This 224-nucleotide RNA sequence from Saccharomyces kudriavzevii belongs to the Rfam family "Small nucleolar RNA snR31". The organism belongs to Saccharomyces kudriavzevii, within Eukaryota. The family's RNA type in Rfam is H/ACA-box small nucleolar RNA.
[Rfam]
RNA sequence: GAAGCAAAAUUAGGCCAUGAGUUCCCGUUAACGUCAACCUCCUUCUCUUCCGUAAGAACGGUUUUCGAUGUUUGAUGGGCGUUGCUUCAGCACGUUCGACUCAUGGCAGAUAAAUUUAUUAGAAAGAUGUAUCUCCAGCUGUUGAUCUUAGAGGGGGAAGCCUUUCUCUUUCACCUCGCAUUUUAAAAAAUCUGAUACAGUUGGUCAUGAUUCGUUCUACAUUC
Numbered sequence: 001g002a003a004g005c006a007a008a009a010u011u012a013g014g015c016c017a018u019g020a021g022u023u024c025c026c027g028u029u030a031a032c033g034u035c036a037a038c039c040u041c042c043u044u045c046u047c048u049u050c051c052g053u054a055a056g057a058a059c060g061g062u063u064u065u066c067g068a069u070g071u072u073u074g075a076u077g078g079g080c081g082u083u084g085c086u087u088c089a090g091c092a093c094g095u096u097c098g099a100c101u102c103a104u105g106g107c108a109g110a111u112a113a114a115u116u117u118a119u120u121a122g123a124a125a126g127a128u129g130u131a132u133c134u135c136c137a138g139c140u141g142u143u144g145a146u147c148u149u150a151g152a153g154g155g156g157g158a159a160g161c162c163u164u165u166c167u168c169u170u171u172c173a174c175c176u177c178g179c180a181u182u183u184u185a186a187a188a189a190a191u192c193u194g195a196u197a198c199a200g201u202u203g204g205u206c207a208u209g210a211u212u213c214g215u216u217c218u219a220c221a222u223u224c
Base pairs, nucleotide, nucleotide: 015106016105017104018103019102020101021100022099024079025078026077027076028075029074030073031072032070033069034068035067036063037062038061039060045056046055080098081097083094084093121218122217123216124215126213127212135204136203137202138201139200140199141198142197151177152176153175154174156172157171158170159169160168